[Rfam]
RNA: Glycine riboswitch aptamer
Organism: Actinomadura sp. KC345
RNA sequence: CGACCCCGUGCGGGAGAGUCCCUGGCAGCCGGUCAGGGACGCCGAAGGAGCAAACCCUCCCCGGAACCUCUCAGGCCAACGGACCGCACGGGCCAG
Numbered sequence: 001c002g003a004c005c006c007c008g009u010g011c012g013g014g015a016g017a018g019u020c021c022c023u024g025g026c027a028g029c030c031g032g033u034c035a036g037g038g039a040c041g042c043c044g045a046a047g048g049a050g051c052a053a054a055c056c057c058u059c060c061c062c063g064g065a066a067c068c069u070c071u072c073a074g075g076c077c078a079a080c081g082g083a084c085c086g087c088a089c090g091g092g093c094c095a096g
Stems, first nucleotide, its partner, number of pairs: 006091008019039006041076003044072002048070003055063001
Dot-bracket structure: .....((((((((.....((((((.........)))))).(((((..(((....(.......)....))))).))).......)))))))).....